[Rfam]
RNA sequence: AGAUUAUCAAAAGUCUCAGGUAUUGGCUUGCACGUAAGCUAUGUUCAGACCGGAUCUUGUCAUGACUGAUACUCAUCAGGUUGGUAUCAUCCCGGCCACCAUGCGCCCGUCACUCUGUACCCUGCACAUAAU
Numbered sequence: 001a002g003a004u005u006a007u008c009a010a011a012a013g014u015c016u017c018a019g020g021u022a023u024u025g026g027c028u029u030g031c032a033c034g035u036a037a038g039c040u041a042u043g044u045u046c047a048g049a050c051c052g053g054a055u056c057u058u059g060u061c062a063u064g065a066c067u068g069a070u071a072c073u074c075a076u077c078a079g080g081u082u083g084g085u086a087u088c089a090u091c092c093c094g095g096c097c098a099c100c101a102u103g104c105g106c107c108c109g110u111c112a113c114u115c116u117g118u119a120c121c122c123u124g125c126a127c128a129u130a131a132u
Stems, first nucleotide, its partner, number of pairs: 017124004021119003024041005050080002053077003058071005083107003087103001

Annotation
This 132-nucleotide RNA from Erwinia tasmaniensis belongs to the Rfam family "Hfq-regulated sRNA 21". Gene Ontology term of the family: protein binding. Rfam classes the family as a small RNA. About the family: Could play role in virulence regulation.